Rfam assigns this 87-nucleotide sequence from Triticum aestivum to the family "MIR1120/MIR1122 microRNA precursor family". A search with the family's covariance model found it, with a score of 95 bits.
RNA sequence: CUACUACUUCCGUCCCAUAAUGUAAGAUGUUUUUUGAUACUAGUGUAGUGUCAAAAAACGUCUUACAUUAUGGGACGGAAGGAGUAU
Number, nucleotide and partner (000 for none) at each position: 001c000002u000003a085004c084005u083006a000007c081008u080009u079010c078011c077012g000013u075014c074015c073016c072017a071018u000019a069020a068021u067022g066023u065024a064025a063026g062027a061028u060029g059030u058031u057032u056033u055034u054035u053036g052037a051038u050039a049040c048041u047042a000043g000044u000045g000046u000047a041048g040049u039050g038051u037052c036053a035054a034055a033056a032057a031058a030059c029060g028061u027062c026063u025064u024065a023066c022067a021068u020069u019070a000071u017072g016073g015074g014075a013076c000077g011078g010079a009080a008081g007082g000083a005084g004085u003086a000087u000
The literature on the family includes a 2007 paper in Genome Biol by Yao et al., "Cloning and characterization of microRNAs from wheat (Triticum aestivum L.)".